[Rfam]
RNA sequence: CCAUUACGCUAUGAAAACUACCAUAUAAUUCUGGAAAUAAGGUCCGGAAGUCUCUACUCAUGACCCGUAAAGUCGUGUACUAUGGCACUAGUUUCAAAGGCG
Dot-bracket structure: ..................(.(((((...(((((((.......))))))).........((((((.......))))))...))))).)...............